[Rfam]
Shown here is a 181-nucleotide sequence from Lentibacter algarum, a member of the family "Ruegeria cis52 sRNA". The literature on the family includes a 2016 paper in Front Microbiol by Rivers et al., "Experimental Identification of Small Non-Coding RNAs in the Model Marine Bacterium Ruegeria pomeroyi DSS-3". By type it is a small RNA. Rfam 15.1 lists 277 matches to the family in 275 species.

RNA sequence: UGCGCAGGGCGUGCUGCAUGACGAUGUUGCGGAACGCAACGCCUUUGAGGCGGGCUGUGCGAAUGUAUUGCGCUGUCAUGACUUCUGCCAUGGAGGCGCGGGUCAUGCGGGCAAUGUAGCCCAUCCCAUAGAGCGCGAUGGUAAGCACGGGGAGAAAGAAGUUCUCGAAGUUGGCUGAUUC
Numbered sequence: 001u002g003c004g005c006a007g008g009g010c011g012u013g014c015u016g017c018a019u020g021a022c023g024a025u026g027u028u029g030c031g032g033a034a035c036g037c038a039a040c041g042c043c044u045u046u047g048a049g050g051c052g053g054g055c056u057g058u059g060c061g062a063a064u065g066u067a068u069u070g071c072g073c074u075g076u077c078a079u080g081a082c083u084u085c086u087g088c089c090a091u092g093g094a095g096g097c098g099c100g101g102g103u104c105a106u107g108c109g110g111g112c113a114a115u116g117u118a119g120c121c122c123a124u125c126c127c128a129u130a131g132a133g134c135g136c137g138a139u140g141g142u143a144a145g146c147a148c149g150g151g152g153a154g155a156a157a158g159a160a161g162u163u164c165u166c167g168a169a170g171u172u173g174g175c176u177g178a179u180u181c
Stems, first nucleotide, its partner, number of pairs: 005140002009136004014131002020125002028123002031120001040111001042109001046105003051100002054097001055075001057073006082096005145181001147179001148177003151172002154165001156163002